Rfam assigns this 136-nucleotide sequence from Oncorhynchus kisutch to the family "Small nucleolar RNA SNORA84".
The base pairs follow the family's consensus structure, which was predicted with WAR.
For this family Rfam cites "Experimental RNomics: identification of 140 candidates for small non-messenger RNAs in the plant Arabidopsis thaliana" (Marker et al., Curr Biol, 2002).
NCBI's taxonomy places the organism under Eukaryota, Craniata, Salmoniformes, Salmoninae, Oncorhynchus.
RNA sequence: GCCUGGUAGUUCCUAGAAAAAGCUGGACUGUGCUGAUCUAUAGGUUUUUGAAUGACUGGCAAAUAUAUACUCUGUGAUUUUAUGCAUGGGAGUUGCCACUCCAAGUAGCCUUCAUAGCCCAGUUGCAGAGACAUUA
Numbered sequence: 001g002c003c004u005g006g007u008a009g010u011u012c013c014u015a016g017a018a019a020a021a022g023c024u025g026g027a028c029u030g031u032g033c034u035g036a037u038c039u040a041u042a043g044g045u046u047u048u049u050g051a052a053u054g055a056c057u058g059g060c061a062a063a064u065a066u067a068u069a070c071u072c073u074g075u076g077a078u079u080u081u082a083u084g085c086a087u088g089g090g091a092g093u094u095g096c097c098a099c100u101c102c103a104a105g106u107a108g109c110c111u112u113c114a115u116a117g118c119c120c121a122g123u124u125g126c127a128g129a130g131a132c133a134u135u136a
Base pairs, nucleotide, nucleotide: 001060002059003058008048012044013043014042015041017039021034022033023032072128074126075125076124077123078122079121084118085117086115087114088113089112092109093108094107095106096105